[Rfam]
RNA sequence: GGAAGUUAAGAAACUGUUUCUUAAUUUUUAACUAAAAAAACUAAGAACCGAUUUUCAAAUAAAGACUUUAAGAACCGGUUCUUAAAUAAGGACUUUAAGAACCGGUUCUUAGCUUUUCUAAUUAAAAGUUAAGAAACAGUUUUUUAACUUCC
Dot-bracket structure: (((((((((((((((((((((((((((((((.((.((((.((((((((((....................................................)))))))))).)))).)).)))))))))))))))))))))))))))))))